[Rfam]
RNA sequence: GGCCCGGCUCUUGCUAAUUCGUAGUCACAGGUAGCCAACGGCGGUUGCCACACAUUUCCGACAAAGACGUCGC
Numbered sequence: 001g002g003c004c005c006g007g008c009u010c011u012u013g014c015u016a017a018u019u020c021g022u023a024g025u026c027a028c029a030g031g032u033a034g035c036c037a038a039c040g041g042c043g044g045u046u047g048c049c050a051c052a053c054a055u056u057u058c059c060g061a062c063a064a065a066g067a068c069g070u071c072g073c
Stems, first nucleotide, its partner, number of pairs: 030049007
narK RNA: a 73-nucleotide sequence from Pseudomonas sp. HLS-6. It scores 72 bits against the family's covariance model.